[Rfam]
RNA sequence: CGAGUCGGUCAGGCGAUCGCUCCCGGCACUCCUUGAGGGCCGGGGGAGGAAAGUCCGGGCUCCACAGGGCAGGGUGCCAGGUAACGCCUGGGGGGCGCGAGCCUACGGAAAGUGCAACAGAAAGGACACCGCCUCUGCAGCGCCCCCGGGCGAACAGCGGUAAGGGUGAAAAGGUGCGGUAAGAGCGCACCGCGCGGCUGGUAACAGGCGCGGCGAUGGUAAACCCCACCUGGAGCAAGACCAAAUAGGAAUCCGUAUGCCGCGGCCCGCGGUGGAUUCGGGUAGGUCGCUAGAGGCGGAUGGCGACAUCCGCCCCAGAUGAAUGAUCGUCCUCGACAGAACCCGGCUUAUCGACCGACUCACUGU
Numbered sequence: 001c002g003a004g005u006c007g008g009u010c011a012g013g014c015g016a017u018c019g020c021u022c023c024c025g026g027c028a029c030u031c032c033u034u035g036a037g038g039g040c041c042g043g044g045g046g047a048g049g050a051a052a053g054u055c056c057g058g059g060c061u062c063c064a065c066a067g068g069g070c071a072g073g074g075u076g077c078c079a080g081g082u083a084a085c086g087c088c089u090g091g092g093g094g095g096c097g098c099g100a101g102c103c104u105a106c107g108g109a110a111a112g113u114g115c116a117a118c119a120g121a122a123a124g125g126a127c128a129c130c131g132c133c134u135c136u137g138c139a140g141c142g143c144c145c146c147c148g149g150g151c152g153a154a155c156a157g158c159g160g161u162a163a164g165g166g167u168g169a170a171a172a173g174g175u176g177c178g179g180u181a182a183g184a185g186c187g188c189a190c191c192g193c194g195c196g197g198c199u200g201g202u203a204a205c206a207g208g209c210g211c212g213g214c215g216a217u218g219g220u221a222a223a224c225c226c227c228a229c230c231u232g233g234a235g236c237a238a239g240a241c242c243a244a245a246u247a248g249g250a251a252u253c254c255g256u257a258u259g260c261c262g263c264g265g266c267c268c269g270c271g272g273u274g275g276a277u278u279c280g281g282g283u284a285g286g287u288c289g290c291u292a293g294a295g296g297c298g299g300a301u302g303g304c305g306a307c308a309u310c311c312g313c314c315c316c317a318g319a320u321g322a323a324u325g326a327u328c329g330u331c332c333u334c335g336a337c338a339g340a341a342c343c344c345g346g347c348u349u350a351u352c353g354a355c356c357g358a359c360u361c362a363c364u365g366u
Stems, first nucleotide, its partner, number of pairs: 002361009011351001012331007020046008051349003055346005060235004067268004072231005077091005092106001093104004107226002112224002114220002129165002131161003135157003173191006192214001193212004198207003239288004249279006259273005295314008
Background: This 366-nucleotide sequence from Chromatocurvus halotolerans belongs to the Rfam family "Bacterial RNase P class A".